[Rfam]
The record is an 87-nucleotide RNA from Sarcophilus harrisii, which matches "Small nucleolar RNA MBII-202" in Rfam.
It is annotated as a C/D-box small nucleolar RNA.
Gene Ontology terms of the family: RNA processing and nucleolus.
RNA sequence: UGAUGACAUAUUCUCCGGAAUCUCUGUAUUGCCUCUGAUGAAUGUAUAUUUGAACCCUUUUCCAUCUGAUGACUGUGGCAACUUGUU
Dot-bracket structure: .(((((............................................................................)))))